LOOT RNA: a 131-nucleotide RNA sequence.
RNA sequence: AGCCUAAACCUGUAAAAAAUUACGGGCAUGGUAAUCGAAACCUGUUCAAGAUAUAGACCCCGUCGUAUGGGACUACCUUGAACAGGUCAUGUCUGGAAACGGACAUGGAUAGGUGGCGAAAGCCAUCCAUC
Numbered sequence: 001a002g003c004c005u006a007a008a009c010c011u012g013u014a015a016a017a018a019a020u021u022a023c024g025g026g027c028a029u030g031g032u033a034a035u036c037g038a039a040a041c042c043u044g045u046u047c048a049a050g051a052u053a054u055a056g057a058c059c060c061c062g063u064c065g066u067a068u069g070g071g072a073c074u075a076c077c078u079u080g081a082a083c084a085g086g087u088c089a090u091g092u093c094u095g096g097a098a099a100c101g102g103a104c105a106u107g108g109a110u111a112g113g114u115g116g117c118g119a120a121a122g123c124c125a126u127c128c129a130u131c
Base pairs, nucleotide, nucleotide: 002032003031004030009026010025011024012023013022014021015020041086042085043084044083045082046081047080048079049078050077054075055074056073059071060070061069062068063067088107089106090105091104092103093102094101095100108131109130110129112127113126114125115124116123117122
Dot-bracket structure: .(((....(((((((....)))))))...)))........((((((((((...(((..(((((...))))).))).)))))))))).((((((((....))))))))(((.((((((....)))))).)))